This 79-nucleotide sequence from Flavobacterium kingsejongi belongs to the Rfam family "Flavo-1 RNA".
The family's consensus secondary structure is taken from published work.

[Rfam]
RNA sequence: CUGUUGCGUGAGGGAUGGAAACGGCAUCCUUUUUCUCCUUUUCUGGGAGAAAAAGAUAGAGUGGACAGCCCGGCCCGCA
Numbered sequence: 001c002u003g004u005u006g007c008g009u010g011a012g013g014g015a016u017g018g019a020a021a022c023g024g025c026a027u028c029c030u031u032u033u034u035c036u037c038c039u040u041u042u043c044u045g046g047g048a049g050a051a052a053a054a055g056a057u058a059g060a061g062u063g064g065a066c067a068g069c070c071c072g073g074c075c076c077g078c079a
Base pairs, nucleotide, nucleotide: 012071013070014069016067017066021062022061026057027056028055032052033051034050035049036048037047038046039045